[Rfam]
RNA sequence: AGCCAUGCAGUGAGCACAAAGCGAACUAUUCUUUCGCCUUUUACUAAAGAAUACCGUGUGCGCGCUGCCUAUAGUGGCAUACGCCUAUUUUUGGAGAGUCUCUUCUUUUUGAGGAGCU
Dot-bracket structure: ..((((.(((((.(((((........((((((((...........))))))))...))))).)))))......)))).................(....(((((.......))))).)
Numbered sequence: 001a002g003c004c005a006u007g008c009a010g011u012g013a014g015c016a017c018a019a020a021g022c023g024a025a026c027u028a029u030u031c032u033u034u035c036g037c038c039u040u041u042u043a044c045u046a047a048a049g050a051a052u053a054c055c056g057u058g059u060g061c062g063c064g065c066u067g068c069c070u071a072u073a074g075u076g077g078c079a080u081a082c083g084c085c086u087a088u089u090u091u092u093g094g095a096g097a098g099u100c101u102c103u104u105c106u107u108u109u110u111g112a113g114g115a116g117c118u
Stems, first nucleotide, its partner, number of pairs: 003077004008067005014061005027053008095118001100116005